[Rfam]
Nucleotides: 173
Base pairs, nucleotide, nucleotide: 006082007081008080019069020068021067022066023065026062027061028060030049031048034045035044036043105168106167107166108165118152119151121149123147124146125145126144127143128142
Number, partner (000 for none) and nucleotide at each position: 001000g002000u003000a004000c005000u006082u007081u008080g009000c010000c011000a012000a013000c014000a015000c016000u017000c018000u019069g020068g021067c022066c023065c024000u025000u026062a027061c028060c029000u030049c031048c032000u033000u034045u035044c036043c037000c038000u039000u040000u041000g042000a043036g044035g045034a046000u047000c048031g049030g050000u051000u052000c053000a054000a055000u056000c057000c058000a059000u060028g061027g062026u063000u064000c065023g066022g067021g068020c069019c070000u071000a072000u073000u074000u075000u076000g077000g078000u079000g080008c081007a082006a083000a084000g085000g086000a087000g088000a089000u090000g091000a092000u093000a094000u095000c096000u097000a098000u099000c100000a101000g102000g103000g104000a105168g106167g107166c108165c109000u110000a111000c112000u113000a114000c115000u116000c117000a118152c119151c120000a121149c122000g123147g124146c125145a126144u127143c128142u129000u130000a131000c132000c133000u134000u135000g136000g137000g138000g139000a140000g141000u142128g143127g144126a145125u146124g147123u148000g149121g150000g151119g152118g153000u154000c155000c156000a157000u158000c159000u160000u161000u162000c163000a164000g165108g166107g167106c168105c169000u170000a171000c172000a173000u
Rfam assigns this 173-nucleotide sequence from Alectoria fallacina to the family "Small nucleolar RNA snR80".
The family has 6 seed sequences and 447 matches in Rfam 15.1.
The family is grouped with related families in Rfam's "SNORA28 clan".
For this family Rfam cites "Genome-wide searching for pseudouridylation guide snoRNAs: analysis of the Saccharomyces cerevisiae genome" (Schattner et al., Nucleic Acids Res, 2004).
Taxonomically the source falls in Alectoria (Eukaryota, Opisthokonta, Fungi, Lecanorineae).
A search with the family's covariance model found it, with a score of 41 bits.